[Rfam]
RNA sequence: GUUUCAGAUGAACCCUUGUUGGGUUGAAGU
Number, nucleotide and partner (000 for none) at each position: 001g000002u000003u000004u000005c000006a000007g000008a000009u000010g000011a025012a024013c023014c022015c021016u000017u000018g000019u000020u000021g015022g014023g013024u012025u011026g000027a000028a000029g000030u000
The record is a 30-nucleotide RNA from Haloquadratum walsbyi, which matches "CRISPR RNA direct repeat element" in Rfam. Lineage of the source: Archaea > Methanobacteriati > Methanobacteriota > Halobacteria > Haloquadratum. Rfam links the family to the GO term defense response. The family's consensus secondary structure was predicted with WAR.